[Rfam]
RNA sequence: GGAAUCCGGUUUAUCCAAGGUUUAGCAAACCAGAUAAUAGCGAGUCUUGGGAUGAUGUCGGUAACGCAUCUGACAAGCGUAGACAGCAGAAAGCAGGGUUGAAUAGUGAUUGAGCUUCGAAACGUUACUUCAGUCGGUCGACGUCUUAACUGGUGCGGAAGACAAUACCAUGUAAUACGAUAUGGCGAGUAUUAUGUGGCACUGCGGAGUCAGAGAACC
Numbered sequence: 001g002g003a004a005u006c007c008g009g010u011u012u013a014u015c016c017a018a019g020g021u022u023u024a025g026c027a028a029a030c031c032a033g034a035u036a037a038u039a040g041c042g043a044g045u046c047u048u049g050g051g052a053u054g055a056u057g058u059c060g061g062u063a064a065c066g067c068a069u070c071u072g073a074c075a076a077g078c079g080u081a082g083a084c085a086g087c088a089g090a091a092a093g094c095a096g097g098g099u100u101g102a103a104u105a106g107u108g109a110u111u112g113a114g115c116u117u118c119g120a121a122a123c124g125u126u127a128c129u130u131c132a133g134u135c136g137g138u139c140g141a142c143g144u145c146u147u148a149a150c151u152g153g154u155g156c157g158g159a160a161g162a163c164a165a166u167a168c169c170a171u172g173u174a175a176u177a178c179g180a181u182a183u184g185g186c187g188a189g190u191a192u193u194a195u196g197u198g199g200c201a202c203u204g205c206g207g208a209g210u211c212a213g214a215g216a217a218c219c
Stems, first nucleotide, its partner, number of pairs: 012036004019031004023188001025186002038089001040087002044084004048079002050074001054070004059066002111213001112211001114210006131204004136200001137163003142157003168199011